A member of the RNA family "TPP riboswitch aptamer (THI element)" from Rhabdobacter roseus, 96 nucleotides long. Vitamin B(1) in its active form thiamin pyrophosphate (TPP) is an essential coenzyme that is synthesised by coupling of pyrimidine and thiazole moieties in bacteria. Pairs were carried over by alignment from the consensus structure, which is taken from published work.
[Rfam]
RNA sequence: GAAUGGCUUUGGGGGUGUCCUCUUGCAAGGACUGAGAUAAUACCCUUUGAACCUGAUACAGUUGAGACUGUCGUAGGGAAAAGCAGAUGGAUCAGG
Number, nucleotide and partner (000 for none) at each position: 001g000002a000003a000004u000005g000006g084007c083008u082009u081010u080011g046012g045013g044014g043015g000016u040017g032018u031019c030020c029021u028022c000023u000024u000025g000026c000027a000028a021029g020030g019031a018032c017033u000034g000035a000036g000037a000038u000039a000040a016041u000042a000043c014044c013045c012046u011047u000048u000049g000050a000051a000052c077053c076054u075055g074056a000057u000058a071059c070060a069061g068062u000063u000064g000065a000066g000067a000068c061069u060070g059071u058072c000073g000074u055075a054076g053077g052078g000079a000080a010081a009082a008083g007084c006085a000086g000087a000088u000089g000090g000091a000092u000093c000094a000095g000096g000